[Rfam]
RNA sequence: GGCUUUCUUCGCGGCCGAGCUCGACCGGCCGUCGAAGCACUCGUAGCGUUCAUCGACGAGCACCGGCAGGUGUUUGGAGUCGAGCCGAUCUGCAGAGUCCUCACCAGCCACGGACUGAAGAUCGCGACG
Numbered sequence: 001g002g003c004u005u006u007c008u009u010c011g012c013g014g015c016c017g018a019g020c021u022c023g024a025c026c027g028g029c030c031g032u033c034g035a036a037g038c039a040c041u042c043g044u045a046g047c048g049u050u051c052a053u054c055g056a057c058g059a060g061c062a063c064c065g066g067c068a069g070g071u072g073u074u075u076g077g078a079g080u081c082g083a084g085c086c087g088a089u090c091u092g093c094a095g096a097g098u099c100c101u102c103a104c105c106a107g108c109c110a111c112g113g114a115c116u117g118a119a120g121a122u123c124g125c126g127a128c129g
Stems, first nucleotide, its partner, number of pairs: 014029003017025001075129002079125001086124002089121003093117003
ALIL pseudoknot: a 129-nucleotide RNA from Streptomyces sp. SID7982.
The source organism's lineage runs through Bacteria, Actinomycetota, Actinomycetes, Kitasatosporales and Streptomyces.
Its family is annotated with positive regulation of translational frameshifting in the Gene Ontology.